[Rfam]
RNA sequence: CGAACCGCGACGGGAGAGCUCGCGCCGUGCCCCACCAGGGGACGGCCGGCGCCGAAGGAGCAACCCUCCCCGGGAAACUCUCAGGCAUCCGUACCGUCGUGGCGAG
Numbered sequence: 001c002g003a004a005c006c007g008c009g010a011c012g013g014g015a016g017a018g019c020u021c022g023c024g025c026c027g028u029g030c031c032c033c034a035c036c037a038g039g040g041g042a043c044g045g046c047c048g049g050c051g052c053c054g055a056a057g058g059a060g061c062a063a064c065c066c067u068c069c070c071c072g073g074g075a076a077a078c079u080c081u082c083a084g085g086c087a088u089c090c091g092u093a094c095c096g097u098c099g100u101g102g103c104g105a106g
Stems, first nucleotide, its partner, number of pairs: 006101008020049003051086003054082002058080003064073002